[Rfam]
RNA sequence: AAACUGAUGAUGACUCCAAGGCAUACCUUGGAAAUCUAAAUAAAAUGAAUGUGAAAAGCCUCUACUGUCUCCUCAUCAGAAGUGGGAUCC
Numbered sequence: 001a002a003a004c005u006g007a008u009g010a011u012g013a014c015u016c017c018a019a020g021g022c023a024u025a026c027c028u029u030g031g032a033a034a035u036c037u038a039a040a041u042a043a044a045a046u047g048a049a050u051g052u053g054a055a056a057a058g059c060c061u062c063u064a065c066u067g068u069c070u071c072c073u074c075a076u077c078a079g080a081a082g083u084g085g086g087a088u089c090c
Stems, first nucleotide, its partner, number of pairs: 003088001005086001022053004026047001028043003
RNA: Small nucleolar RNA SNORD116